[Rfam]
RNA sequence: GUUGUUGGAUUGACCUCAAUCCACAUGUGUUGAAAUUGAUUGGGGUGGAAUUUAGUUCAAGUUCCACUCUAAUCCACCUCAACACAUGUGGAUUGAUAUAAACCCGACU
Numbered sequence: 001g002u003u004g005u006u007g008g009a010u011u012g013a014c015c016u017c018a019a020u021c022c023a024c025a026u027g028u029g030u031u032g033a034a035a036u037u038g039a040u041u042g043g044g045g046u047g048g049a050a051u052u053u054a055g056u057u058c059a060a061g062u063u064c065c066a067c068u069c070u071a072a073u074c075c076a077c078c079u080c081a082a083c084a085c086a087u088g089u090g091g092a093u094u095g096a097u098a099u100a101a102a103c104c105c106g107a108c109u
Stems, first nucleotide, its partner, number of pairs: 004108005010102002013099001016096017036076001038074006045067003
Dot-bracket structure: ...(((((.((.(..(((((((((((((((((...(.((((((.(((.................))).)))))).)...)))))))))))))))))..).)).))))).
RNA: MIR5565 microRNA precursor family